This 401-nucleotide sequence from Microlunatus phosphovorus belongs to the Rfam family "Bacterial RNase P class A". The family's RNA type in Rfam is ribozyme. Ribonuclease P (RNase P) is a ubiquitous endoribonuclease, found in archaea, bacteria and eukarya as well as chloroplasts and mitochondria.
RNA sequence: CGAGUCGGCCGGGCGAUCGCGGUGGGUACGGCGGUUGCCGUGCUCUCCGAGGAAAGUCCGGACUCCACCGAGCAGGGUGGUGGGUAACACCCACCCGGGGUGACCCGCGGGAAAGUGCCACAGAAAGCAAACCGCCCCGAGCCGUACGCGGCACGGGGUAAGGGUGAAACGGCGGUGUAAGAGACCACCAGCAUCCCGGGUGACCGGGAUGGCUAGGCAAACCCCACCCGGAGCAAGAUCAAGAAGGAUGCCCCCGGGCAUCCGCGGGAGCGUUCGAGGGCUGCUCGUCCGAGGCUCCCGGGUAGAUCGCACCAGGCGGUCGGCAACGGCCGUCGCAGAUGGAUGAUCGUCACUCGGGCUCCGGCCCGAGACAGAAUCCGGCUUACAGGCCGGCUCGUCCC
Numbered sequence: 001c002g003a004g005u006c007g008g009c010c011g012g013g014c015g016a017u018c019g020c021g022g023u024g025g026g027u028a029c030g031g032c033g034g035u036u037g038c039c040g041u042g043c044u045c046u047c048c049g050a051g052g053a054a055a056g057u058c059c060g061g062a063c064u065c066c067a068c069c070g071a072g073c074a075g076g077g078u079g080g081u082g083g084g085u086a087a088c089a090c091c092c093a094c095c096c097g098g099g100g101u102g103a104c105c106c107g108c109g110g111g112a113a114a115g116u117g118c119c120a121c122a123g124a125a126a127g128c129a130a131a132c133c134g135c136c137c138c139g140a141g142c143c144g145u146a147c148g149c150g151g152c153a154c155g156g157g158g159u160a161a162g163g164g165u166g167a168a169a170c171g172g173c174g175g176u177g178u179a180a181g182a183g184a185c186c187a188c189c190a191g192c193a194u195c196c197c198g199g200g201u202g203a204c205c206g207g208g209a210u211g212g213c214u215a216g217g218c219a220a221a222c223c224c225c226a227c228c229c230g231g232a233g234c235a236a237g238a239u240c241a242a243g244a245a246g247g248a249u250g251c252c253c254c255c256g257g258g259c260a261u262c263c264g265c266g267g268g269a270g271c272g273u274u275c276g277a278g279g280g281c282u283g284c285u286c287g288u289c290c291g292a293g294g295c296u297c298c299c300g301g302g303u304a305g306a307u308c309g310c311a312c313c314a315g316g317c318g319g320u321c322g323g324c325a326a327c328g329g330c331c332g333u334c335g336c337a338g339a340u341g342g343a344u345g346a347u348c349g350u351c352a353c354u355c356g357g358g359c360u361c362c363g364g365c366c367c368g369a370g371a372c373a374g375a376a377u378c379c380g381g382c383u384u385a386c387a388g389g390c391c392g393g394c395u396c397g398u399c400c401c
Stems, first nucleotide, its partner, number of pairs: 001397010011386001012351007020049003024045008054384003058381005063233004070286004075229005080094005095109001096107004110224002115222002117218003132163002134159006141152004171189002174186003191213001192211008237308004266299006278290004315334008
Dot-bracket structure: ((((((((((((((((((.(((.((((((((......)))))))).)))....[[[.[[[[[((((...[[[[.((((((((((.....)))))(((((....)))).)((...(((((............((((((((.((((....)))).))))))..)).......((.(((.......))).)).(((((((((....)))))))).)..)))..)))))))))))))...((((.........................((((((......((((.]]]]))))...)))))).....))))......((((((((....))))))))..........))))))).........................]]]]]]]].).))))))))))....